Rfam assigns this 99-nucleotide sequence from Dipodomys ordii to the family "mir-1184 microRNA precursor family". Rfam 15.1 lists 204 matches to the family in 120 species. It scores 87 bits against the family's covariance model. Lineage of the source: Eukaryota > Eumetazoa > Euteleostomi > Sarcopterygii > Dipodomys. Gene Ontology terms of the family: RISC complex and miRNA-mediated post-transcriptional gene silencing. The family's consensus secondary structure was predicted with RNAalifold.

[Rfam]
RNA sequence: CUUGCAAAACUAGGUGAAGGAGGUGGUUCUGCUCGGCACUCAGCAGUGGCCACAUCUCCACCUGAAGCGACUUGACUGCUUCCGUGUCCUUCUCAUGGG
Numbered sequence: 001c002u003u004g005c006a007a008a009a010c011u012a013g014g015u016g017a018a019g020g021a022g023g024u025g026g027u028u029c030u031g032c033u034c035g036g037c038a039c040u041c042a043g044c045a046g047u048g049g050c051c052a053c054a055u056c057u058c059c060a061c062c063u064g065a066a067g068c069g070a071c072u073u074g075a076c077u078g079c080u081u082c083c084g085u086g087u088c089c090u091u092c093u094c095a096u097g098g099g
Stems, first nucleotide, its partner, number of pairs: 005097002008093001012090003019083006026076003030069004037064002046061004
Dot-bracket structure: ....((.(...(((....((((((.(((.((((...((.......((((........)))).)).))))....))).))))))....)))..)..))..